A member of the RNA family "Small nucleolar RNA SNORA33" from Neotoma lepida, 133 nucleotides long. Rfam links the family to the GO terms nucleolus and RNA processing. ACA33 is a member of the H/ACA class of snoRNA that guide the sites of modification of uridines to pseudouridines. Pairs were carried over by alignment from the consensus structure, which was predicted with PFOLD. Rfam 15.1 lists 1,176 matches to the family in 522 species.
Nucleotides: 133
Stems, first nucleotide, its partner, number of pairs: 003063003007059001016043004073126002076123001085113003090108002094104002
Number, partner (000 for none) and nucleotide at each position: 001000a002000a003063a004062u005061c006000u007059g008000c009000u010000a011000a012000u013000u014000a015000a016043u017042c018041u019040g020000c021000c022000u023000a024000c025000c026000u027000g028000a029000a030000u031000g032000u033000g034000u035000u036000u037000c038000u039000c040019c041018a042017g043016a044000a045000c046000u047000u048000c049000u050000g051000a052000a053000a054000a055000a056000a057000a058000u059007c060000u061005g062004g063003u064000a065000a066000u067000a068000g069000u070000g071000a072000u073126g074125c075000c076123a077000u078000a079000u080000u081000g082000u083000g084000a085113g086112c087111c088000u089000u090108a091107a092000g093000a094104a095103c096000a097000a098000a099000u100000g101000a102000a103095g104094u105000c106000u107091u108090u109000c110000u111087g112086g113085u114000c115000c116000a117000u118000g119000a120000a121000a122000a123076u124000a125074g126073c127000u128000a129000c130000a131000a132000u133000a